[Rfam]
RNA: azaaromatic riboswitch aptamer (yjdF RNA)
Organism: Ruminococcaceae bacterium D16
RNA sequence: GGGGCUGGAGAUAAAAACACAGGGCGGUUGGUAGUCCGUCCGCGGGCCGCGCUCCCGUCAGUAGCCUUCCCUCCCGGGUCGUCCCUUCUCCAUAUUCACAUU
Numbered sequence: 001g002g003g004g005c006u007g008g009a010g011a012u013a014a015a016a017a018c019a020c021a022g023g024g025c026g027g028u029u030g031g032u033a034g035u036c037c038g039u040c041c042g043c044g045g046g047c048c049g050c051g052c053u054c055c056c057g058u059c060a061g062u063a064g065c066c067u068u069c070c071c072u073c074c075c076g077g078g079u080c081g082u083c084c085c086u087u088c089u090c091c092a093u094a095u096u097c098a099c100a101u102u
Stems, first nucleotide, its partner, number of pairs: 006092006022041006042058005069078003